[Rfam]
RNA sequence: GGUGGUAUUUGGCAAUAGUAGAACUCACACUGGUAAUGUAAAAAAAGGAUCCGGUGGUUCUAGACUUGCCAACUACUUCU
Dot-bracket structure: .(.(((..(((((((...((((((...((((((.................))))))))))))...)))))))..))).).
This 80-nucleotide RNA sequence from Silurus meridionalis belongs to the Rfam family "mir-182 microRNA precursor family". The family is grouped with related families in Rfam's "mir-182 clan". Lineage of the source: Eukaryota > Bilateria > Teleostei > Clupeocephala > Silurus. The base pairs follow the family's consensus structure, which was predicted with RNAalifold.